The record is a 102-nucleotide sequence from Sedimentibacter sp. zth1, which matches "Glycine riboswitch aptamer" in Rfam. Gene Ontology term of the family: glycine biosynthetic process. NCBI's taxonomy places the organism under Bacteria, Bacillati, Bacillota, Tissierellia, Sedimentibacter.

RNA sequence: AUGAAAGUUGCGGGAGAGACUCAUAGUGAGCGCCGAAGGAAUAAGUUAUAUAAAGCCAAUAUAUAUAAUGAUGAUCUCAGGCAAAAGGACCGUAACUGGACA
Numbered sequence: 001a002u003g004a005a006a007g008u009u010g011c012g013g014g015a016g017a018g019a020c021u022c023a024u025a026g027u028g029a030g031c032g033c034c035g036a037a038g039g040a041a042u043a044a045g046u047u048a049u050a051u052a053a054a055g056c057c058a059a060u061a062u063a064u065a066u067a068a069u070g071a072u073g074a075u076c077u078c079a080g081g082c083a084a085a086a087g088g089a090c091c092g093u094a095a096c097u098g099g100a101c102a
Stems, first nucleotide, its partner, number of pairs: 006097008020030004032082003035078002039076002045069008
Dot-bracket structure: .....((((((((......((((...)))).(((((..((....((((((((.........)))))))).....)))).))).......)))))))).....